[Rfam]
RNA sequence: GGAUGUGAGGGCGAUCUGGCUGCGACAUCUGUCACCCCAUUGAUUGCCAGGGUUGAUUUGGCUGAUCUGGUUGGUUAGGCAAGUGUCCCUUUCCUCCCUCACUGCUACAUGUGUGCCCCUCCCGAAGCUACAUGCUCCAUUACAGAGGACGACCUUCCCUGAGAGAGGAGAGGACCAUUCUUCCAUCAAGGGUAUACGAGUAGCUGCGCUCCCCUGCUAGAACCUCGAAACAGGUUCUCCAGGUCCAUUUGUAGGAGAACGUAGGGUAGUCGAGCUUCCAAGACUCCAGACACAUCCAAAUGAGGGGCUGCACGUGGCAGUCUGCCUUUCUUU
Number, nucleotide and partner (000 for none) at each position: 001g108002g000003a106004u000005g102006u101007g100008a099009g098010g097011g096012c000013g093014a092015u000016c000017u000018g090019g089020c000021u000022g000023c000024g087025a086026c085027a084028u083029c000030u081031g080032u079033c078034a000035c074036c073037c070038c069039a068040u000041u000042g067043a066044u065045u064046g062047c061048c060049a000050g000051g000052g000053u000054u000055g000056a000057u000058u000059u000060g048061g047062c046063u000064g045065a044066u043067c042068u039069g038070g037071u000072u000073g036074g035075u000076u000077a000078g033079g032080c031081a030082a000083g028084u027085g026086u025087c024088c000089c019090u018091u000092u014093c013094c000095u000096c011097c010098c009099u008100c007101a006102c005103u000104g000105c000106u003107a000108c001109a000110u000111g000112u000113g000114u000115g000116c173117c172118c168119c167120u166121c165122c000123c000124g137125a136126a000127g135128c134129u000130a000131c000132a000133u000134g128135c127136u125137c124138c000139a000140u162141u161142a160143c000144a000145g000146a000147g158148g157149a156150c000151g000152a000153c000154c000155u000156u149157c148158c147159c000160u142161g141162a140163g000164a000165g121166a120167g119168g118169a000170g000171a000172g117173g116174a000175c000176c000177a000178u000179u000180c000181u000182u000183c000184c000185a000186u000187c000188a000189a000190g000191g000192g000193u000194a000195u000196a000197c000198g000199a000200g000201u000202a000203g275204c274205u273206g000207c000208g000209c269210u268211c000212c266213c265214c264215u263216g262217c261218u000219a000220g000221a000222a000223c000224c257225u256226c255227g000228a000229a000230a252231c251232a250233g249234g248235u000236u000237c000238u000239c000240c000241a000242g000243g000244u000245c000246c000247a000248u234249u233250u232251g231252u230253a000254g000255g226256a225257g224258a000259a000260c000261g217262u216263a215264g214265g213266g212267u000268a210269g209270u000271c000272g000273a205274g204275c203276u000277u000278c000279c000280a000281a000282g000283a000284c000285u000286c000287c000288a000289g000290a000291c000292a000293c000294a000295u000296c000297c000298a333299a332300a331301u000302g328303a327304g326305g325306g000307g321308c320309u319310g318311c317312a000313c000314g000315u000316g000317g311318c310319a309320g308321u307322c000323u000324g000325c305326c304327u303328u302329u000330c000331u300332u299333u298
Overview: Rfam assigns this 333-nucleotide RNA from Gulo gulo to the family "7SK RNA". Pairs were carried over by alignment from the consensus structure, which is taken from published work. The family's RNA type in Rfam is non-coding RNA gene. The match comes from Rfam's covariance-model search (318 bits). 7SK was discovered as an abundant small nuclear RNA in the mid-70s but a possible function has only recently been suggested. On this family, see Wassarman and Steitz, Mol Cell Biol 1991: "Structural analyses of the 7SK ribonucleoprotein (RNP), the most abundant human small RNP of unknown function".